[Rfam]
The family of this 75-nucleotide RNA sequence from Actinophytocola oryzae is "ASpks TB sRNA". The family's consensus secondary structure is taken from published work. On this family, see Arnvig and Young, Mol Microbiol 2009: "Identification of small RNAs in Mycobacterium tuberculosis". Rfam 15.1 lists 9,052 matches to the family in 683 species.
RNA sequence: CUUGACCGAGCCGAGCCACAGCGGGUGCUCGGCAGGCCGGUUCUGGCCGUAGGUGGCGAGGAUCGCCUGCGCCUC
Numbered sequence: 001c002u003u004g005a006c007c008g009a010g011c012c013g014a015g016c017c018a019c020a021g022c023g024g025g026u027g028c029u030c031g032g033c034a035g036g037c038c039g040g041u042u043c044u045g046g047c048c049g050u051a052g053g054u055g056g057c058g059a060g061g062a063u064c065g066c067c068u069g070c071g072c073c074u075c
Stems, first nucleotide, its partner, number of pairs: 014026001016024002032070002038065002043060002047056003